The record is a 114-nucleotide RNA sequence from Garicola koreensis, which matches "Glycine riboswitch aptamer" in Rfam. The organism belongs to Garicola, within Bacteria. Rfam describes the family as follows. This family represents the bacterial glycine riboswitch. A search with the family's covariance model found it, with a score of 55 bits.
RNA sequence: GUCCCCUGCGCGGGAGAGAUCGGCUCAUGCUGCGUUAAGCGGAUGGGCCGACGCCGAAGGAGCAAGGUUCUCCCCAUCACGAAUCUCUCAGGCACCCGGUACCGCGCCCAGGGG
Number, nucleotide and partner (000 for none) at each position: 001g000002u000003c000004c000005c000006c000007u000008g107009c106010g105011c104012g103013g102014g000015a000016g000017a000018g000019a000020u051021c050022g049023g048024c047025u046026c045027a044028u043029g000030c000031u000032g000033c000034g000035u000036u000037a000038a000039g000040c000041g000042g000043a028044u027045g026046g025047g024048c023049c022050g021051a020052c000053g093054c092055c091056g089057a088058a000059g000060g087061a086062g085063c000064a000065a000066g080067g000068u000069u000070c000071u000072c000073c000074c000075c000076a000077u000078c000079a000080c066081g000082a000083a000084u000085c062086u061087c060088u057089c056090a000091g055092g054093c053094a000095c000096c000097c000098g000099g000100u000101a000102c013103c012104g011105c010106g009107c008108c000109c000110a000111g000112g000113g000114g000